A member of the RNA family "small Cajal body-specific RNA 17" from Mandrillus leucophaeus, 124 nucleotides long.
A search with the family's covariance model found it, with a score of 81 bits.
Pairs were carried over by alignment from the consensus structure, which is taken from published work.
About the family: scaRNAs are a specific class of small nuclear RNAs which localise to the Cajal bodies and guide the modification of RNA polymerase II transcribed spliceosomal RNAs U1, U2, U4, U5 and U12.
Lineage of the source: Eukaryota > Euteleostomi > Theria > Haplorrhini > Mandrillus.

[Rfam]
RNA sequence: UUCUUAGGUCCCCAGGGGAGUGUUUUCCUUCCAUGAUCAGAUCCCAUUGUAGGUGGCAAUGCCUGCUGGGAGUCUGAGAAAAUUAUACAAACAUGGCAGGUAAAGUGGGGUCAGGGACCCAGGA
Numbered sequence: 001u002u003c004u005u006a007g008g009u010c011c012c013c014a015g016g017g018g019a020g021u022g023u024u025u026u027c028c029u030u031c032c033a034u035g036a037u038c039a040g041a042u043c044c045c046a047u048u049g050u051a052g053g054u055g056g057c058a059a060u061g062c063c064u065g066c067u068g069g070g071a072g073u074c075u076g077a078g079a080a081a082a083u084u085a086u087a088c089a090a091a092c093a094u095g096g097c098a099g100g101u102a103a104a105g106u107g108g109g110g111u112c113a114g115g116g117a118c119c120c121a122g123g124a
Stems, first nucleotide, its partner, number of pairs: 001117004008111005037077006044070002049066007